[Rfam]
RNA sequence: CCAUCCCGCGUGCUGGAACGCCCGGGACUGACGCCCCCUUGGCGGCUACUCUGGCCAGGUGCGCCUUCCCGAGGGAAGCCGCAAAGCCGACAGCCGUCGCACUCCAGGGAGCAUGCCCAUG
Numbered sequence: 001c002c003a004u005c006c007c008g009c010g011u012g013c014u015g016g017a018a019c020g021c022c023c024g025g026g027a028c029u030g031a032c033g034c035c036c037c038c039u040u041g042g043c044g045g046c047u048a049c050u051c052u053g054g055c056c057a058g059g060u061g062c063g064c065c066u067u068c069c070c071g072a073g074g075g076a077a078g079c080c081g082c083a084a085a086g087c088c089g090a091c092a093g094c095c096g097u098c099g100c101a102c103u104c105c106a107g108g109g110a111g112c113a114u115g116c117c118c119a120u121g
Stems, first nucleotide, its partner, number of pairs: 060083004065078004086100002089098003